[Rfam]
RNA: DUF3800-V RNA
RNA sequence: CAGAGCUGGUAAUAAGACACUAUGCGUGCUUAGAUGCUCCUGAGUGGGUCACUCAGUUUGAGUCUAAGAACAACACGUAUAGCACCGCCGCUCUA
Numbered sequence: 001c002a003g004a005g006c007u008g009g010u011a012a013u014a015a016g017a018c019a020c021u022a023u024g025c026g027u028g029c030u031u032a033g034a035u036g037c038u039c040c041u042g043a044g045u046g047g048g049u050c051a052c053u054c055a056g057u058u059u060g061a062g063u064c065u066a067a068g069a070a071c072a073a074c075a076c077g078u079a080u081a082g083c084a085c086c087g088c089c090g091c092u093c094u095a
Base pairs, nucleotide, nucleotide: 002094003093004092005091006090009088010087024078025077026076027075028074029068030067031066032065033064034063035062040056041055042054043053044052045051